[Rfam]
RNA sequence: GCCACUCUGAAAAGAAGCGUGAGGCACCACUCGCGCUCGCCCACGGUGAAAGUGGCAGACCCUCACGGGCCGGUCGCGAAGCUCUCAGGCCCAUGACAGAGGGGGAGUU
Numbered sequence: 001g002c003c004a005c006u007c008u009g010a011a012a013a014g015a016a017g018c019g020u021g022a023g024g025c026a027c028c029a030c031u032c033g034c035g036c037u038c039g040c041c042c043a044c045g046g047u048g049a050a051a052g053u054g055g056c057a058g059a060c061c062c063u064c065a066c067g068g069g070c071c072g073g074u075c076g077c078g079a080a081g082c083u084c085u086c087a088g089g090c091c092c093a094u095g096a097c098a099g100a101g102g103g104g105g106a107g108u109u
Base pairs, nucleotide, nucleotide: 002104003103005101006100007099008098009097016037017036018035019034020033021032022031023030039090040089041088043085046084048082052077053076054075055074056073
Shown here is a 109-nucleotide RNA sequence from Marisediminicola antarctica, a member of the family "Glycine riboswitch aptamer". Taxonomically the source falls in Marisediminicola (Bacteria, Actinomycetota, Micrococcales, Microbacteriaceae). A search with the family's covariance model found it, with a score of 36 bits.